[Rfam]
RNA sequence: UCAUACAGUAGGAUAAUUCUGAUCUGAUAUCUUCUUCGGAAGAUUCAGAAAAGUUUUAUCACGUGAUGACUGCGGCCAAUGACAUUUUUGAGUUAAAGAGCUGCGAGGGACGGGUCUUAGCAACGCCCGUGUCCUAGUCUGAU
Numbered sequence: 001u002c003a004u005a006c007a008g009u010a011g012g013a014u015a016a017u018u019c020u021g022a023u024c025u026g027a028u029a030u031c032u033u034c035u036u037c038g039g040a041a042g043a044u045u046c047a048g049a050a051a052a053g054u055u056u057u058a059u060c061a062c063g064u065g066a067u068g069a070c071u072g073c074g075g076c077c078a079a080u081g082a083c084a085u086u087u088u089u090g091a092g093u094u095a096a097a098g099a100g101c102u103g104c105g106a107g108g109g110a111c112g113g114g115u116c117u118u119a120g121c122a123a124c125g126c127c128c129g130u131g132u133c134c135u136a137g138u139c140u141g142a143u
Base pairs, nucleotide, nucleotide: 024048025047026046029044030043031042032041033040034039083103084102086100087099088098107133108132110130111129112128113127114126115125

Shown here is a 143-nucleotide sequence from Elysia chlorotica, a member of the family "U8 small nucleolar RNA". The match comes from Rfam's covariance-model search (42 bits). The base pairs follow the family's consensus structure, which is taken from published work. The organism belongs to Elysia, within Eukaryota.